[Rfam]
RNA sequence: AACCAAUGAUGUAAUGAUUCUGCCAAAUGAAAUAUAAUGAUAUCACUGUAAAACCGUUCCAUUUUGAUUCUGAGGUU
Numbered sequence: 001a002a003c004c005a006a007u008g009a010u011g012u013a014a015u016g017a018u019u020c021u022g023c024c025a026a027a028u029g030a031a032a033u034a035u036a037a038u039g040a041u042a043u044c045a046c047u048g049u050a051a052a053a054c055c056g057u058u059c060c061a062u063u064u065u066g067a068u069u070c071u072g073a074g075g076u077u
Stems, first nucleotide, its partner, number of pairs: 001077004

This 77-nucleotide sequence belongs to the Rfam family "Small nucleolar RNA SNORD47". The base pairs follow the family's consensus structure, which was predicted with ILM. The sequence is in the family's curated seed alignment. Its family is annotated with nucleolus and RNA processing in the Gene Ontology.